[Rfam]
RNA sequence: CCGUUCAUCAAAUGGUUGUGAAAUGUUAGUUUUCAAUAUUCAUAUCUCAGCCAGCUUUGAUGAGCGAUA
Numbered sequence: 001c002c003g004u005u006c007a008u009c010a011a012a013u014g015g016u017u018g019u020g021a022a023a024u025g026u027u028a029g030u031u032u033u034c035a036a037u038a039u040u041c042a043u044a045u046c047u048c049a050g051c052c053a054g055c056u057u058u059g060a061u062g063a064g065c066g067a068u069a
Stems, first nucleotide, its partner, number of pairs: 005063008013053006020046002024044003
Dot-bracket structure: ....((((((((((((((.((..(((...............))))).))))))..))))))))......
RNA: mir-2 microRNA precursor family
Organism: Ceutorhynchus assimilis